[Rfam]
Rfam assigns this 260-nucleotide sequence from Stylophora pistillata to the family "Small nucleolar RNA SNORA53". Rfam describes the family as follows. The snoRNA ACA53 belongs to the H/ACA family of pseudouridylation guide snoRNAs. Taxonomically the source falls in Stylophora (Eukaryota, Metazoa, Cnidaria, Hexacorallia). Rfam 15.1 lists 1,090 matches to the family in 800 species. Rfam links the family to the GO terms nucleolus and RNA processing.
RNA sequence: GACACACUUCCUUAGAUCCAUUCCUGGGACAACAUUGUCAUGCUUUUGCAUUGUUUACAGGCUUGAUCUGUAACAGUGCUAAGGGUGUCAGCAGUUGUCCAACAGCACUAAGCUGCAGAUUGGGAAUGCUUGAGUCAUGAGUGUGUGAGAUCAAUACACCUCUCUGUGGUGCAACUUUGCCUCCUGAUUGUCAGCCUAGAUGCUAUAGUGCAGCUAGUCCUUGAUGUUUAUGUCAGUGAGGUAGCAUUACAAGGGACAAA
Numbered sequence: 001g002a003c004a005c006a007c008u009u010c011c012u013u014a015g016a017u018c019c020a021u022u023c024c025u026g027g028g029a030c031a032a033c034a035u036u037g038u039c040a041u042g043c044u045u046u047u048g049c050a051u052u053g054u055u056u057a058c059a060g061g062c063u064u065g066a067u068c069u070g071u072a073a074c075a076g077u078g079c080u081a082a083g084g085g086u087g088u089c090a091g092c093a094g095u096u097g098u099c100c101a102a103c104a105g106c107a108c109u110a111a112g113c114u115g116c117a118g119a120u121u122g123g124g125a126a127u128g129c130u131u132g133a134g135u136c137a138u139g140a141g142u143g144u145g146u147g148a149g150a151u152c153a154a155u156a157c158a159c160c161u162c163u164c165u166g167u168g169g170u171g172c173a174a175c176u177u178u179g180c181c182u183c184c185u186g187a188u189u190g191u192c193a194g195c196c197u198a199g200a201u202g203c204u205a206u207a208g209u210g211c212a213g214c215u216a217g218u219c220c221u222u223g224a225u226g227u228u229u230a231u232g233u234c235a236g237u238g239a240g241g242u243a244g245c246a247u248u249a250c251a252a253g254g255g256a257c258a259a260a
Stems, first nucleotide, its partner, number of pairs: 002146007011134005019128007027100005036093003042086003045082001048079004054073001056072006103115004160255004169250003178243006185236001189235002